L17 ribosomal protein downstream element: a 70-nucleotide RNA sequence from Streptococcus sp. DD10. A search with the family's covariance model found it, with a score of 69 bits. Pairs were carried over by alignment from the consensus structure, which is taken from published work. By type it is a cis-regulatory element.
RNA sequence: UGAGUGUUAUGAUGAUGGAGGCUCGUCCUCUUAGUCUAGCUCUGGUCUACCGCUAGGUUUUUCCUAGCGG
Numbered sequence: 001u002g003a004g005u006g007u008u009a010u011g012a013u014g015a016u017g018g019a020g021g022c023u024c025g026u027c028c029u030c031u032u033a034g035u036c037u038a039g040c041u042c043u044g045g046u047c048u049a050c051c052g053c054u055a056g057g058u059u060u061u062u063c064c065u066a067g068c069g070g
Stems, first nucleotide, its partner, number of pairs: 002042004011036003017031005050070008